[Rfam]
RNA sequence: CUCGUUGAUGGGCGUAUUCUCGAUUGUUCUGGUCCAGCUCUAUCUUUGUGCUGAACCAUUACAACCGUGAGUACGUCAUCAAUGCCA
Numbered sequence: 001c002u003c004g005u006u007g008a009u010g011g012g013c014g015u016a017u018u019c020u021c022g023a024u025u026g027u028u029c030u031g032g033u034c035c036a037g038c039u040c041u042a043u044c045u046u047u048g049u050g051c052u053g054a055a056c057c058a059u060u061a062c063a064a065c066c067g068u069g070a071g072u073a074c075g076u077c078a079u080c081a082a083u084g085c086c087a
Stems, first nucleotide, its partner, number of pairs: 003084009013075007021067002024064004030058004035053004040048001